RNA: Small nucleolar RNA Z247
Organism: Panicum miliaceum
RNA sequence: GCUCUAGAUGAUGAAGAACUGGUGGCGCACAUCUGCAAUGGCCUUGAUGCCGAUUACAAUCCAGUGGUGACAUCAGUCACUACUAGAUUGGAUCCCAUCUCGAUUCUUGACCUGUAUGCCCAGCUGCUCAGUUUCGAGA
Numbered sequence: 001g002c003u004c005u006a007g008a009u010g011a012u013g014a015a016g017a018a019c020u021g022g023u024g025g026c027g028c029a030c031a032u033c034u035g036c037a038a039u040g041g042c043c044u045u046g047a048u049g050c051c052g053a054u055u056a057c058a059a060u061c062c063a064g065u066g067g068u069g070a071c072a073u074c075a076g077u078c079a080c081u082a083c084u085a086g087a088u089u090g091g092a093u094c095c096c097a098u099c100u101c102g103a104u105u106c107u108u109g110a111c112c113u114g115u116a117u118g119c120c121c122a123g124c125u126g127c128u129c130a131g132u133u134u135c136g137a138g139a
Stems, first nucleotide, its partner, number of pairs: 004138002007135002090106004